[Rfam]
RNA sequence: GGAUACUUGAAAGGAGCUGUUCCUAGUACGAGAAGGACCGGAAUGGACGAACCAAUGGUGUGUCGGUUGUUUUGCCAAAAGCAUAGCCGAGUAGCUACGUUCGGAAAGGAUAAGCAUUGAAAGCAUCUAAAUGCCAAGCCUCCCUUAAGAUAAGGUAUCCCUAUGAGACUCCAUAUAGACUAUGUGGUUGAUAGGUUGGGUGUGUACGCACAGUAAUGUGUUUAGCUAACCAAUACUAAUAAGUCCAUUG
Numbered sequence: 001g002g003a004u005a006c007u008u009g010a011a012a013g014g015a016g017c018u019g020u021u022c023c024u025a026g027u028a029c030g031a032g033a034a035g036g037a038c039c040g041g042a043a044u045g046g047a048c049g050a051a052c053c054a055a056u057g058g059u060g061u062g063u064c065g066g067u068u069g070u071u072u073u074g075c076c077a078a079a080a081g082c083a084u085a086g087c088c089g090a091g092u093a094g095c096u097a098c099g100u101u102c103g104g105a106a107a108g109g110a111u112a113a114g115c116a117u118u119g120a121a122a123g124c125a126u127c128u129a130a131a132u133g134c135c136a137a138g139c140c141u142c143c144c145u146u147a148a149g150a151u152a153a154g155g156u157a158u159c160c161c162u163a164u165g166a167g168a169c170u171c172c173a174u175a176u177a178g179a180c181u182a183u184g185u186g187g188u189u190g191a192u193a194g195g196u197u198g199g200g201u202g203u204g205u206a207c208g209c210a211c212a213g214u215a216a217u218g219u220g221u222u223u224a225g226c227u228a229a230c231c232a233a234u235a236c237u238a239a240u241a242a243g244u245c246c247a248u249u250g
Stems, first nucleotide, its partner, number of pairs: 001160008011146004017046007048103005056097003063090005068083006107141003114134005164247001167245004171187005192238003195234005202226001208221005
Dot-bracket structure: ((((((((..((((..(((((((................))))))).(((((...(((....(((((((((((....))))))..)))))....))).)))))...(((....(((((...........)))))....))).))))......))))))))...(..(((((((((.......)))))....((((((((..(.....(((((....)))))....)...))))).)))...)))).)...
RNA: Bacterial large subunit ribosomal RNA, nucleotides 2683 to 2932